[Rfam]
RNA sequence: AAGCCAGCCAAUGAAUCUGAUUACCUGAAUGUGUUUCUGCAGAAAGUUUUUAAAAGCUGGCAAUAGUAAAGCCACGUUACAAGCCUUAAGGACAUUAAAGUUGUUAAGAUCCCCGAAAAUUUUUUUUUUU
Numbered sequence: 001a002a003g004c005c006a007g008c009c010a011a012u013g014a015a016u017c018u019g020a021u022u023a024c025c026u027g028a029a030u031g032u033g034u035u036u037c038u039g040c041a042g043a044a045a046g047u048u049u050u051u052a053a054a055a056g057c058u059g060g061c062a063a064u065a066g067u068a069a070a071g072c073c074a075c076g077u078u079a080c081a082a083g084c085c086u087u088a089a090g091g092a093c094a095u096u097a098a099a100g101u102u103g104u105u106a107a108g109a110u111c112c113c114c115g116a117a118a119a120u121u122u123u124u125u126u127u128u129u130u
Base pairs, nucleotide, nucleotide: 003061004060005059006058007057016043017042018041019040071123074120083110085108086107087106088105089104091102092101093100
RNA: Small nucleolar RNA SNORA33
Organism: Propithecus coquereli